This 69-nucleotide RNA from Leersia perrieri belongs to the Rfam family "MIR531 microRNA precursor family".
It scores 74 bits against the family's covariance model.
RNA sequence: CCGAGCUUUGCUCGCCGGUGCUGCAUGCCGCCAUGGAUGGCGCGCAACCCCGUCGAGCGUAGCUCGACG
Numbered sequence: 001c002c003g004a005g006c007u008u009u010g011c012u013c014g015c016c017g018g019u020g021c022u023g024c025a026u027g028c029c030g031c032c033a034u035g036g037a038u039g040g041c042g043c044g045c046a047a048c049c050c051c052g053u054c055g056a057g058c059g060u061a062g063c064u065c066g067a068c069g
Stems, first nucleotide, its partner, number of pairs: 002066005009059006016052003020048001022046003026042004031036001